mir-218 microRNA precursor family: a 76-nucleotide sequence from Acanthochromis polyacanthus. The family's consensus secondary structure was predicted with RNAalifold. The organism belongs to Acanthochromis, within Eukaryota.
RNA sequence: CAGGACUCCAUUGUGCUUGAUCUAACCAUGCAGUACAUAUUCUGUUCAUGGUUGUGCCAAGCACCUUGGAGUCUUG
Number, nucleotide and partner (000 for none) at each position: 001c076002a075003g074004g073005a072006c071007u070008c069009c068010a000011u000012u000013g064014u063015g062016c061017u060018u059019g058020a000021u000022c000023u000024a053025a052026c051027c050028a049029u048030g047031c000032a000033g000034u000035a000036c000037a000038u000039a000040u000041u000042c000043u000044g000045u000046u000047c030048a029049u028050g027051g026052u025053u024054g000055u000056g000057c000058c019059a018060a017061g016062c015063a014064c013065c000066u000067u000068g009069g008070a007071g006072u005073c004074u003075u002076g001